[Rfam]
The family of this 83-nucleotide RNA sequence from Natranaerobius trueperi is "Group II catalytic intron D1-D4-1".
From the family's description: Group II introns are found in rRNA, tRNA and mRNA of organelles in fungi, plants and protists, and also in mRNA in bacteria.
The organism belongs to Natranaerobius, within Bacteria.
Pairs were carried over by alignment from the consensus structure.

RNA sequence: UAAGCAUGGUCGAGAGGCUAUGUUGAACAGCAGACGUCAGCAGAGGUUAUAGUACUUGGUAGCUUAAGAUAUCAAAGAAGGAC
Numbered sequence: 001u002a003a004g005c006a007u008g009g010u011c012g013a014g015a016g017g018c019u020a021u022g023u024u025g026a027a028c029a030g031c032a033g034a035c036g037u038c039a040g041c042a043g044a045g046g047u048u049a050u051a052g053u054a055c056u057u058g059g060u061a062g063c064u065u066a067a068g069a070u071a072u073c074a075a076a077g078a079a080g081g082a083c
Stems, first nucleotide, its partner, number of pairs: 001025002004023008037044002046083003056075005